[Rfam]
RNA: Purine riboswitch aptamer
Organism: Amedibacillus dolichus
RNA sequence: AAGAUUGUAUUGGCGAUUACUUGUAUAUAUUUCGUAAUAAGGUCGAAAAGUCUCUAGCCUCUUGCCAUAAAUGAGAGGGCUACAAGUGAACGGUUAUGCUUU
Number, nucleotide and partner (000 for none) at each position: 001a000002a000003g000004a000005u000006u000007g000008u000009a000010u000011u000012g000013g000014c000015g000016a000017u000018u088019a087020c086021u085022u084023g083024u082025a081026u000027a000028u000029a000030u048031u047032u046033c045034g044035u000036a000037a000038u000039a000040a000041g000042g000043u000044c034045g033046a032047a031048a030049a000050g000051u000052c000053u000054c000055u000056a000057g000058c078059c077060u076061c075062u074063u073064g072065c000066c000067a000068u000069a000070a000071a000072u064073g063074a062075g061076a060077g059078g058079g000080c000081u025082a024083c023084a022085a021086g020087u019088g018089a000090a000091c000092g000093g000094u000095u000096a000097u000098g000099c000100u000101u000102u000